[Rfam]
RNA: SAM riboswitch aptamer (S box leader)
Organism: Geotalea uraniireducens
RNA sequence: UGCUUAUCAAGAGUGGUGGAGGGAAAGGCCCUGUGAAACCACAGCAACCGGUUCGGCAACGAGCGCCAGGUGCUAAAUCCUGCCGAAUGGCAAAGAUGAGAG
Numbered sequence: 001u002g003c004u005u006a007u008c009a010a011g012a013g014u015g016g017u018g019g020a021g022g023g024a025a026a027g028g029c030c031c032u033g034u035g036a037a038a039c040c041a042c043a044g045c046a047a048c049c050g051g052u053u054c055g056g057c058a059a060c061g062a063g064c065g066c067c068a069g070g071u072g073c074u075a076a077a078u079c080c081u082g083c084c085g086a087a088u089g090g091c092a093a094a095g096a097u098g099a100g101a102g
Base pairs, nucleotide, nucleotide: 001102003100004099005098006097007096008095013042014041015040016039017038021031022030023029026081027080028079043074044073045072046071048070049069050067051066052065078094084090